[Rfam]
This 63-nucleotide sequence belongs to the Rfam family "L2-Alphaproteobacteria ribosomal protein leader". It is annotated as a cis-regulatory leader. On this family, see Eckert and Weinberg, BMC Microbiol 2020: "Discovery of 20 novel ribosomal leader candidates in bacteria and archaea". Rfam's curators put it in the seed alignment. The base pairs follow the family's consensus structure, which is taken from published work.

RNA sequence: UUCCUCAAAAGAGGGAUAUCACAUUGGGCGGGGGACCGUCCGUUUGCUAACGGAAGACAGAAA
Numbered sequence: 001u002u003c004c005u006c007a008a009a010a011g012a013g014g015g016a017u018a019u020c021a022c023a024u025u026g027g028g029c030g031g032g033g034g035a036c037c038g039u040c041c042g043u044u045u046g047c048u049a050a051c052g053g054a055a056g057a058c059a060g061a062a063a
Stems, first nucleotide, its partner, number of pairs: 001016006026041006